[Rfam]
RNA: Bacterial large subunit ribosomal RNA, nucleotides 9 to 571
Organism: Pelagicoccus mobilis
RNA sequence: UACUCAAUGCUAUUAGUGGAUGCCUUGGCAUCAUCAGGCGAUGAAGGACGUGAUAAGCUGCGAUAAGCCUCGGUCAGCGGCAAAUACGCUUUGACCCGGGGAUUUCCGAAUGGGGCAACCCAGCGCAGGUAACACUGCGUUACUCCUUUCUGAACACAUAGGAAAGGUUGAGCGAUACCCGCCGAAGUGAAACAUCUCAGUAAGCGGAGGAAAAGAAAGAGAAUCGAUUCCGUAAGUAGCGGCGAGCGAAAGCGGAACAGCCCAAACCUGGUUGAUUUAUCAACUGGGGGUUGUAGGGCCAGGUCAUGGAGAAGUUAACGAUAGUGGAAGGUUCUGGAAAGUUCCGCCAUAGAGGGUGACAGUCCCGUAUACGAAAUCGUUUUCCAUCCUACUGGUACCCUGAGUAGCACCGGACACGUGAAACCCGGUGUGAAUCUGCGCAGACCAUUGCGUAAGGCUAAAUACUCGAUGAUGACCGAUAGUGAACUAGUACCGUGAGGGAAAGGUGAAAAGUACCCCUGUUAGGGGAGUGAAAUAGAAACUGAAACUAAUAGCAGACAAGU
Numbered sequence: 001u002a003c004u005c006a007a008u009g010c011u012a013u014u015a016g017u018g019g020a021u022g023c024c025u026u027g028g029c030a031u032c033a034u035c036a037g038g039c040g041a042u043g044a045a046g047g048a049c050g051u052g053a054u055a056a057g058c059u060g061c062g063a064u065a066a067g068c069c070u071c072g073g074u075c076a077g078c079g080g081c082a083a084a085u086a087c088g089c090u091u092u093g094a095c096c097c098g099g100g101g102a103u104u105u106c107c108g109a110a111u112g113g114g115g116c117a118a119c120c121c122a123g124c125g126c127a128g129g130u131a132a133c134a135c136u137g138c139g140u141u142a143c144u145c146c147u148u149u150c151u152g153a154a155c156a157c158a159u160a161g162g163a164a165a166g167g168u169u170g171a172g173c174g175a176u177a178c179c180c181g182c183c184g185a186a187g188u189g190a191a192a193c194a195u196c197u198c199a200g201u202a203a204g205c206g207g208a209g210g211a212a213a214a215g216a217a218a219g220a221g222a223a224u225c226g227a228u229u230c231c232g233u234a235a236g237u238a239g240c241g242g243c244g245a246g247c248g249a250a251a252g253c254g255g256a257a258c259a260g261c262c263c264a265a266a267c268c269u270g271g272u273u274g275a276u277u278u279a280u281c282a283a284c285u286g287g288g289g290g291u292u293g294u295a296g297g298g299c300c301a302g303g304u305c306a307u308g309g310a311g312a313a314g315u316u317a318a319c320g321a322u323a324g325u326g327g328a329a330g331g332u333u334c335u336g337g338a339a340a341g342u343u344c345c346g347c348c349a350u351a352g353a354g355g356g357u358g359a360c361a362g363u364c365c366c367g368u369a370u371a372c373g374a375a376a377u378c379g380u381u382u383u384c385c386a387u388c389c390u391a392c393u394g395g396u397a398c399c400c401u402g403a404g405u406a407g408c409a410c411c412g413g414a415c416a417c418g419u420g421a422a423a424c425c426c427g428g429u430g431u432g433a434a435u436c437u438g439c440g441c442a443g444a445c446c447a448u449u450g451c452g453u454a455a456g457g458c459u460a461a462a463u464a465c466u467c468g469a470u471g472a473u474g475a476c477c478g479a480u481a482g483u484g485a486a487c488u489a490g491u492a493c494c495g496u497g498a499g500g501g502a503a504a505g506g507u508g509a510a511a512a513g514u515a516c517c518c519c520u521g522u523u524a525g526g527g528g529a530g531u532g533a534a535a536u537a538g539a540a541a542c543u544g545a546a547a548c549u550a551a552u553a554g555c556a557g558a559c560a561a562g563u
Stems, first nucleotide, its partner, number of pairs: 008556009022542001023506002027477002029474007036466002038173002046107003049062003068101006077089003112121003122141007143170001145167007178209001179207004189196002219225002228462001229256005239247002259459004267288007295401003299395004311388002314384001317381006324372003330345002334341001348352001354366003407431007438453005493500002516528004
Dot-bracket structure: .......(((((((((.....(((..(((((((((((((......((((((........))).....((((((...(((.......)))......))))))...)))....(((....)))(((((((......))))))).(.(((((((.........)))))))..).))....(((((......((....)).......)))).).........((...))..((((((.....((.....))....)))))..((((....(((((((........)))))))......(((.((((........((.(..((((((.(((...((..(......)..))..(...).(((.......)))...)))...))))))..)..))...))))...))).....(((((((...........)))))))......(((((......)))))..))))..)..)).))))))).))...............((....))....)).........((((.....)))).............).....))))))))).......